RNA sequence: AAAAAAGCAGGGAUCUGUUGCCUUUUGUGAAUUGAUCUCUCGUACACAUCAGGGACAUUAAAUUGUGCGAUGUUAUUGGGUGAACCUCUUGAGUGUGUUGAUGAUUGAAGGUUCAGUAAACAAUGCAAAAUUG
Numbered sequence: 001a002a003a004a005a006a007g008c009a010g011g012g013a014u015c016u017g018u019u020g021c022c023u024u025u026u027g028u029g030a031a032u033u034g035a036u037c038u039c040u041c042g043u044a045c046a047c048a049u050c051a052g053g054g055a056c057a058u059u060a061a062a063u064u065g066u067g068c069g070a071u072g073u074u075a076u077u078g079g080g081u082g083a084a085c086c087u088c089u090u091g092a093g094u095g096u097g098u099u100g101a102u103g104a105u106u107g108a109a110g111g112u113u114c115a116g117u118a119a120a121c122a123a124u125g126c127a128a129a130a131u132u133g
Stems, first nucleotide, its partner, number of pairs: 005049001007047001011038002014035002017032001066127004071122004081115007
The record is a 133-nucleotide RNA sequence from Striga hermonthica, which matches "Small nucleolar RNA snoR74" in Rfam. For this family Rfam cites "Experimental RNomics: identification of 140 candidates for small non-messenger RNAs in the plant Arabidopsis thaliana" (Marker et al., Curr Biol, 2002). Rfam classes the family as an H/ACA-box small nucleolar RNA.